[Rfam]
RNA sequence: GUAAUGUUUCUUGCUCAAAUGAGUAUUCCAAUCACAGUUGCAGAUCUUUGUUUUCUGCUGACUGAGAUGCUCAUUUGAGCAAGCAGUGUUAG
Numbered sequence: 001g002u003a004a005u006g007u008u009u010c011u012u013g014c015u016c017a018a019a020u021g022a023g024u025a026u027u028c029c030a031a032u033c034a035c036a037g038u039u040g041c042a043g044a045u046c047u048u049u050g051u052u053u054u055c056u057g058c059u060g061a062c063u064g065a066g067a068u069g070c071u072c073a074u075u076u077g078a079g080c081a082a083g084c085a086g087u088g089u090u091a092g
Stems, first nucleotide, its partner, number of pairs: 004089005010083018029064002
RNA: MIR828 microRNA precursor family